[Rfam]
RNA sequence: AUAAUGAUACGCCUGCAUAGCCACAGCUCGUGCGCAGAAAGCGCCGCACGCAAUGGAUGCAGCCCGGGCGGAGCCGGGGAGGUGAGAUUCCUGUGC
Number, nucleotide and partner (000 for none) at each position: 001a000002u000003a000004a000005u000006g000007a000008u000009a000010c000011g000012c093013c062014u061015g060016c059017a058018u057019a000020g000021c000022c000023a000024c000025a000026g000027c000028u000029c000030g000031u000032g000033c000034g000035c000036a000037g000038a000039a000040a000041g000042c000043g000044c000045c000046g000047c000048a000049c000050g000051c000052a000053a000054u000055g000056g000057a018058u017059g016060c015061a014062g013063c079064c078065c077066g000067g075068g074069c073070g000071g000072a000073g069074c068075c067076g000077g065078g064079g063080a092081g091082g090083u000084g000085a000086g000087a000088u000089u000090c082091c081092u080093g012094u000095g000096c000
Description: pemK RNA: a 96-nucleotide RNA sequence. The family's RNA type in Rfam is cis-regulatory element.